[Rfam]
RNA: SAM riboswitch aptamer (S box leader)
RNA sequence: AUGUUAUCAAGAAAGGUGGAGGGAAUAGACCCUGCGAAACCUUGGCAACCCUUGCGAAACAGCGAGAAGGUGCUAAAUUCUACUCAUUUUUGGGAUAGAUAACAG
Numbered sequence: 001a002u003g004u005u006a007u008c009a010a011g012a013a014a015g016g017u018g019g020a021g022g023g024a025a026u027a028g029a030c031c032c033u034g035c036g037a038a039a040c041c042u043u044g045g046c047a048a049c050c051c052u053u054g055c056g057a058a059a060c061a062g063c064g065a066g067a068a069g070g071u072g073c074u075a076a077a078u079u080c081u082a083c084u085c086a087u088u089u090u091u092g093g094g095a096u097a098g099a100u101a102a103c104a105g
Stems, first nucleotide, its partner, number of pairs: 002104007013043005021032003026082004044074004049070002051066004078097001083094004